[Rfam]
RNA sequence: AUCACAGAUUCGUCAGCGUUGCCGCAUUUUCGCCCUCAUCAUGCCAAGUGGCCGCCCCGUUGCUCGAUUUGAAUGGGGUUACAGCCUCGACGGCUCGGCUUCGUCGAUCGUCGGUUUGUCAGCCCCCCAGCCCCCCGGGGAUCUGGUGGUGCCGGGCCAUUACUUUCGAGGCCAACUCAGCGGCUGGCGUUCUGCGCUGGCCGUUUU
Numbered sequence: 001a002u003c004a005c006a007g008a009u010u011c012g013u014c015a016g017c018g019u020u021g022c023c024g025c026a027u028u029u030u031c032g033c034c035c036u037c038a039u040c041a042u043g044c045c046a047a048g049u050g051g052c053c054g055c056c057c058c059g060u061u062g063c064u065c066g067a068u069u070u071g072a073a074u075g076g077g078g079u080u081a082c083a084g085c086c087u088c089g090a091c092g093g094c095u096c097g098g099c100u101u102c103g104u105c106g107a108u109c110g111u112c113g114g115u116u117u118g119u120c121a122g123c124c125c126c127c128c129a130g131c132c133c134c135c136c137g138g139g140g141a142u143c144u145g146g147u148g149g150u151g152c153c154g155g156g157c158c159a160u161u162a163c164u165u166u167c168g169a170g171g172c173c174a175a176c177u178c179a180g181c182g183g184c185u186g187g188c189g190u191u192c193u194g195c196g197c198u199g200g201c202c203g204u205u206u207u
Stems, first nucleotide, its partner, number of pairs: 039051001041049002084172007092158008101149002106143004111138004122131002181203010